[Rfam]
Nucleotides: 084
Stems, first nucleotide, its partner, number of pairs: 012037002018031005040078004047074002049070003056065003
Number, partner (000 for none) and nucleotide at each position: 001000u002000u003000a004000a005000u006000u007000u008000a009000a010000a011000g012037g013036c014000a015000a016000a017000c018031u019030c020029a021028c022027u023000g024000a025000a026000a027022g028021g029020u030019g031018a032000c033000g034000a035000c036013g037012c038000a039000a040078a041077g042076c043075u044000a045000u046000a047074g048073g049070g050069g051068c052000u053000u054000c055000u056065g057064u058063c059000a060000u061000a062000a063058g064057a065056c066000u067000u068051g069050c070049c071000a072000g073048c074047c075043a076042g077041c078040u079000a080000c081000c082000a083000u084000c
This 84-nucleotide RNA from Neobacillus bataviensis belongs to the Rfam family "c-di-GMP-I riboswitch aptamer". A search with the family's covariance model found it, with a score of 64 bits. GEMM was predicted in a large-scale screen for bacterial structured RNA regulatory elements. The organism belongs to Neobacillus bataviensis, within Bacteria.